[Rfam]
RNA sequence: AGAGGGUUUAAGGCUACAACAGAAGCAUUCAUGGUGCAGCCAUGCCAGAUUCCAAUUAACCUGCAAAUUCUGCU
Numbered sequence: 001a002g003a004g005g006g007u008u009u010a011a012g013g014c015u016a017c018a019a020c021a022g023a024a025g026c027a028u029u030c031a032u033g034g035u036g037c038a039g040c041c042a043u044g045c046c047a048g049a050u051u052c053c054a055a056u057u058a059a060c061c062u063g064c065a066a067a068u069u070c071u072g073c074u
Stems, first nucleotide, its partner, number of pairs: 012041004018074001020072005025037003046063003050059002
The record is a 74-nucleotide RNA sequence from Alligator mississippiensis, which matches "Mammalian CPEB3 ribozyme" in Rfam. The match comes from Rfam's covariance-model search (50 bits). From the family's description: The mammalian CPEB3 ribozyme is a self cleaving RNA located in the second intron of the CPEB3 gene which belongs to a family of genes regulating messenger RNA polyadenylation.